This 87-nucleotide sequence from Sporomusa ovata belongs to the Rfam family "c-di-GMP-I riboswitch aptamer". Gene Ontology term of the family: cyclic-di-GMP binding. Taxonomically the source falls in Sporomusa (Bacteria, Bacillota, Selenomonadales, Sporomusaceae). Rfam's curators write: GEMM was predicted in a large-scale screen for bacterial structured RNA regulatory elements. Genes associated with GEMM are involved in a diverse array of functions, including chemotaxis regulation, signal transduction, secretion and chitin.

[Rfam]
RNA sequence: AAAUUUUCUAGGCAAACUUAUCGAAAGAUGAGGACGCAAAGCUAUGGGUCUAAGGACAGAUUGGUCUACGACUGCCAGGUUGCCGAU
Numbered sequence: 001a002a003a004u005u006u007u008c009u010a011g012g013c014a015a016a017c018u019u020a021u022c023g024a025a026a027g028a029u030g031a032g033g034a035c036g037c038a039a040a041g042c043u044a045u046g047g048g049u050c051u052a053a054g055g056a057c058a059g060a061u062u063g064g065u066c067u068a069c070g071a072c073u074g075c076c077a078g079g080u081u082g083c084c085g086a087u
Stems, first nucleotide, its partner, number of pairs: 012037002017032006040081004045077003048072003055066003